RNA sequence: GUAGCGCUGGACGUCCGCGUCCGGCGAGGAUCGCAAC
Numbered sequence: 001g002u003a004g005c006g007c008u009g010g011a012c013g014u015c016c017g018c019g020u021c022c023g024g025c026g027a028g029g030a031u032c033g034c035a036a037c
Stems, first nucleotide, its partner, number of pairs: 005026009

The record is a 37-nucleotide RNA sequence from Nocardia panacis, which matches "CRISPR RNA direct repeat element" in Rfam. Rfam links the family to the GO term defense response. It scores 46 bits against the family's covariance model. Taxonomically the source falls in Nocardia (Bacteria, Bacillati, Actinomycetota, Actinomycetes).